[Rfam]
RNA sequence: GUCGAUGAUAUUGUCCUGUCACAGCAGUACUUUUUGCCUAGUUUACUGUUGUUUCGGGACAUUUCCAUCGAC
Numbered sequence: 001g002u003c004g005a006u007g008a009u010a011u012u013g014u015c016c017u018g019u020c021a022c023a024g025c026a027g028u029a030c031u032u033u034u035u036g037c038c039u040a041g042u043u044u045a046c047u048g049u050u051g052u053u054u055c056g057g058g059a060c061a062u063u064u065c066c067a068u069c070g071a072c
Stems, first nucleotide, its partner, number of pairs: 003070004012061007022051008
RNA: mir-1000 microRNA precursor family